[Rfam]
The record is a 90-nucleotide RNA sequence from Jatropha curcas, which matches "Small nucleolar RNA Z122" in Rfam.
For this family Rfam cites "The high diversity of snoRNAs in plants: identification and comparative study of 120 snoRNA genes from Oryza sativa" (Chen et al., Nucleic Acids Res, 2003).
By type it is a C/D-box small nucleolar RNA.
Its family is annotated with nucleolus and RNA processing in the Gene Ontology.
The match comes from Rfam's covariance-model search (47 bits).
The base pairs follow the family's consensus structure, which was predicted with PFOLD.

RNA sequence: UUUGGGGAAUGAUGACAAGAUUCAAACAGAUGAGCAGACGCGCCAGCGCUCUCUGCUGAAUAAUCUAUCGCACGUCAGUCUGAUCCCGAA
Numbered sequence: 001u002u003u004g005g006g007g008a009a010u011g012a013u014g015a016c017a018a019g020a021u022u023c024a025a026a027c028a029g030a031u032g033a034g035c036a037g038a039c040g041c042g043c044c045a046g047c048g049c050u051c052u053c054u055g056c057u058g059a060a061u062a063a064u065c066u067a068u069c070g071c072a073c074g075u076c077a078g079u080c081u082g083a084u085c086c087c088g089a090a
Stems, first nucleotide, its partner, number of pairs: 001090007